RNA: Archaeal large subunit ribosomal RNA, nucleotides 10 to 565
Organism: Methanobrevibacter ruminantium
Nucleotides: 556
Stems, first nucleotide, its partner, number of pairs: 008549010023534001024500002028470002030467006037460002046109004050063003069102006078090003113122003140151004158189001159187005169176002199206002210237005221227001240453004248281003258269004292391003302383001304381002316367003322340001324339004343347001349361003403424007431447005487494002
Number, partner (000 for none) and nucleotide at each position: 001000c002000u003000a004000c005000u006000u007000g008549u009548a010547c011546u012545a013544u014543c015542u016541g017540g018000g019000g020000g021000a022000u023534a024500g025499c026000u027000a028470g029469g030467c031466u032465u033464g034463a035462g036000u037460u038459g039000c040000c041000u042000a043000u044000g045000a046109a047108g048107g049106u050063c051062g052061u053000g054000g055000u056000a057000a058000g059000c060000u061052g062051c063050g064000a065000u066000a067000a068000g069102c070101u071100u072099g073098g074097g075000g076000u077000a078090g079089g080088a081000g082000c083000a084000g085000a086000c087000a088080u089079c090078u091000u092000u093000u094000g095000a096000u097074c098073c099072c100071a101070a102069g103000a104000u105000u106049g107048c108047c109046u110000a111000a112000u113122g114121g115120g116000a117000c118000u119000u120115c121114c122113u123000a124000a125000a126000u127000a128000a129000c130000u131000u132000g133000u134000u135000a136000u137000u138000u139000g140151a141150u142149c143148c144000g145000a146000g147000a148143g149142g150141a151140u152000u153000g154000g155000g156000a157000a158189c159187c160186c161185a162184c163183u164000g165000a166000a167000u168000u169176g170175a171000a172000a173000c174000a175170u176169c177000u178000u179000a180000g181000u182000a183163g184162g185161u186160g187159g188000a189158g190000g191000a192000a193000g194000a195000g196000a197000a198000a199206g200205c201000a202000a203000u204000a205200g206199c207000g208000a209000u210237a211236u212235c213234g214233u215000u216000a217000g218000u219000a220000a221227c222000g223000g224000c225000g226000a227221g228000c229000g230000a231000a232000a233214a234213c235212g236211a237210u238000g239000u240453a241452g242451g243450a244000c245000a246000a247000a248281c249280u250279g251000a252000a253000u254000c255000c256000c257000a258269u259268a260267u261266u262000g263000u264000g265000a266261g267260g268259u269258a270000u271000g272000g273000g274000a275000g276000a277000u278000g279250u280249g281248g282000u283000g284000u285000u286000u287000u288000a289000g290000a291000a292391a293390u294389a295000u296000u297000u298000u299000u300000a301000g302383g303000c304381c305380c306000c307000u308000u309000g310000a311000a312000c313000u314000a315000a316367g317366c318365u319000g320000a321000a322340g323000u324339u325338g326337a327336c328000u329000u330000g331000g332000a333000a334000u335000g336327g337326u338325c339324a340322c341000a342000c343347c344000g345000u346000a347343g348000a349361g350360g351359g352000u353000g354000a355000c356000a357000g358000u359351c360350c361349c362000g363000u364000a365318a366317g367316u368000a369000u370000g371000u372000g373000u374000u375000c376000u377000u378000g379000u380305g381304g382000u383302c384000u385000u386000g387000u388000u389294u390293a391292u392000u393000u394000u395000c396000u397000a398000g399000a400000g401000u402000a403424g404423g405422a406421u407420g408419c409418a410000u411000u412000g413000g414000a415000u416000a417000u418409u419408g420407c421406g422405u423404u424403u425000g426000a427000a428000u429000u430000u431447g432446g433445g434444u435443g436000g437000c438000a439000u440000c441000a442000a443435c444434a445433c446432c447431u448000a449000a450243u451242c452241c453240u454000a455000a456000a457000u458000a459038c460037a461000u462035c463034u464033c465032a466031a467030g468000a469029c470028c471000g472000a473000u474000a475000g476000c477000g478000u479000a480000u481000u482000u483000a484000g485000u486000a487494c488493c489000g490000u491000g492000a493488g494487g495000g496000a497000a498000u499025g500024c501000u502000g503000a504000a505000a506000a507000g508000a509000a510000c511000c512000c513000c514000g515000a516000u517000u518000g519000g520000g521000g522000g523000g524000u525000g526000a527000a528000a529000a530000g531000a532000a533000c534023u535000u536000g537000a538000a539000a540017c541016c542015a543014g544013a545012u546011a547010g548009u549008g550000a551000u552000a553000g554000c555000c556000a